Shown here is a 72-nucleotide sequence from Streptomyces sparsogenes, a member of the family "tRNA".

RNA sequence: GCGGGUGUAGCUCAGUAGUAGAGCGCCCCCUUUCCAAGGGGGAGGCGCAGUGUGCGAUCCCUGUCACCCGCU
Numbered sequence: 001g002c003g004g005g006u007g008u009a010g011c012u013c014a015g016u017a018g019u020a021g022a023g024c025g026c027c028c029c030c031u032u033u034c035c036a037a038g039g040g041g042g043a044g045g046c047g048c049a050g051u052g053u054g055c056g057a058u059c060c061c062u063g064u065c066a067c068c069c070g071c072u
Base pairs, nucleotide, nucleotide: 001071002070003069004068005067006066007065010024011023012022013021026042027041028040029039030038047064048063049062050061052060
Overview:
The base pairs follow the family's consensus structure, which is taken from published work. A search with the family's covariance model found it, with a score of 55 bits.